Notes
A member of the RNA family "HNH endonuclease-associated RNA and ORF (HEARO) RNA" from Desulfovibrio sp. An276, 216 nucleotides long. A search with the family's covariance model found it, with a score of 134 bits. Lineage of the source: Bacteria > Thermodesulfobacteriota > Desulfovibrionales > Desulfovibrionaceae > Desulfovibrio. Rfam 15.1 lists 952 matches to the family in 249 species.
[Rfam]
RNA sequence: GUCAACUACCCCGGCCUCAAAGGCCGAGGCUUGCAAAAGCCUGGUUGACUAGCCUCAGUCUGCCGAAAGGCGACUACGUUGGUUGGGAACAUGUAGGCACCGCAGGAUGUUACUUCUAGUCCGGCGCGCUGCGGUCAGUCGUUAAAUGCCCUAAGGGUUGUGGGCUGUGCGGCUGACAUACAAAACCCCUUCCAACAUUGGCGAAGGAGACUUUAA
Numbered sequence: 001g002u003c004a005a006c007u008a009c010c011c012c013g014g015c016c017u018c019a020a021a022g023g024c025c026g027a028g029g030c031u032u033g034c035a036a037a038a039g040c041c042u043g044g045u046u047g048a049c050u051a052g053c054c055u056c057a058g059u060c061u062g063c064c065g066a067a068a069g070g071c072g073a074c075u076a077c078g079u080u081g082g083u084u085g086g087g088a089a090c091a092u093g094u095a096g097g098c099a100c101c102g103c104a105g106g107a108u109g110u111u112a113c114u115u116c117u118a119g120u121c122c123g124g125c126g127c128g129c130u131g132c133g134g135u136c137a138g139u140c141g142u143u144a145a146a147u148g149c150c151c152u153a154a155g156g157g158u159u160g161u162g163g164g165c166u167g168u169g170c171g172g173c174u175g176a177c178a179u180a181c182a183a184a185a186c187c188c189c190u191u192c193c194a195a196c197a198u199u200g201g202c203g204a205a206g207g208a209g210a211c212u213u214u215a216a
Stems, first nucleotide, its partner, number of pairs: 001049008010029002012026002016023002030039003052202003057075004078196005085189003097132002101126003105122004109212001111210001114207001116206002134177009146168002148165004154159001